[Rfam]
RNA sequence: GGCCGGUGAUGAUCGCUUAUCCGUUUUUCUGACACCUCGUCUGAGGGCGGCGGGCGGCCGCAGCCCCUGCUGACCAUCCACGACUGAGGCCC
Numbered sequence: 001g002g003c004c005g006g007u008g009a010u011g012a013u014c015g016c017u018u019a020u021c022c023g024u025u026u027u028u029c030u031g032a033c034a035c036c037u038c039g040u041c042u043g044a045g046g047g048c049g050g051c052g053g054g055c056g057g058c059c060g061c062a063g064c065c066c067c068u069g070c071u072g073a074c075c076a077u078c079c080a081c082g083a084c085u086g087a088g089g090c091c092c
Stems, first nucleotide, its partner, number of pairs: 001091004047061005
RNA: Small nucleolar RNA SNORD60
Organism: Chunga burmeisteri